The family of this 70-nucleotide RNA sequence from Probosciger aterrimus is "Small nucleolar RNA SNORD19". For this family Rfam cites "RNomics: an experimental approach that identifies 201 candidates for novel, small, non-messenger RNAs in mouse" (Huttenhofer et al., EMBO J, 2001). The family's RNA type in Rfam is C/D-box small nucleolar RNA. The pairing is the family consensus, mapped onto this sequence. Gene Ontology terms of the family: RNA processing and nucleolus. The organism belongs to Probosciger, within Eukaryota.
[Rfam]
RNA sequence: GAGCUAUGAAGAUUUUAAGGGAGUCUGAGAUUCAAUUGAAGACAUAAGAUCCAACUCUGAGCUCACUGCC
Numbered sequence: 001g002a003g004c005u006a007u008g009a010a011g012a013u014u015u016u017a018a019g020g021g022a023g024u025c026u027g028a029g030a031u032u033c034a035a036u037u038g039a040a041g042a043c044a045u046a047a048g049a050u051c052c053a054a055c056u057c058u059g060a061g062c063u064c065a066c067u068g069c070c
Stems, first nucleotide, its partner, number of pairs: 001064004